RNA sequence: GACGAGCGCGGCGAUGGCGUCCGCCCACCACAACCGCCGGACACGCCGGCUGAUGACGCCUUCUCACCG
Numbered sequence: 001g002a003c004g005a006g007c008g009c010g011g012c013g014a015u016g017g018c019g020u021c022c023g024c025c026c027a028c029c030a031c032a033a034c035c036g037c038c039g040g041a042c043a044c045g046c047c048g049g050c051u052g053a054u055g056a057c058g059c060c061u062u063c064u065c066a067c068c069g
Base pairs, nucleotide, nucleotide: 010025011024012023013022016060017059018058019057020056021055036050037049038048039047

Rfam assigns this 69-nucleotide RNA sequence to the family "Fluoride riboswitch aptamer (crcB RNA motif)".
It scores 47 bits against the family's covariance model.